[Rfam]
The family of this 68-nucleotide RNA sequence from Mus musculus is "mir-133 microRNA precursor family". Rfam describes the family as follows. mir-133 was first experimentally characterised in mouse and homologues have since been discovered in several other species. The source organism's lineage runs through Eukaryota, Metazoa, Theria, Boreoeutheria and Mus. Rfam's curators put it in the seed alignment. A reference for the family is Lagos-Quintana et al. (2002), "Identification of tissue-specific microRNAs from mouse", Curr Biol.
RNA sequence: GCUAAAGCUGGUAAAAUGGAACCAAAUCGCCUCUUCAAUGGAUUUGGUCCCCUUCAACCAGCUGUAGC
Numbered sequence: 001g002c003u004a005a006a007g008c009u010g011g012u013a014a015a016a017u018g019g020a021a022c023c024a025a026a027u028c029g030c031c032u033c034u035u036c037a038a039u040g041g042a043u044u045u046g047g048u049c050c051c052c053u054u055c056a057a058c059c060a061g062c063u064g065u066a067g068c
Stems, first nucleotide, its partner, number of pairs: 001068004006063007015054002018050003022047007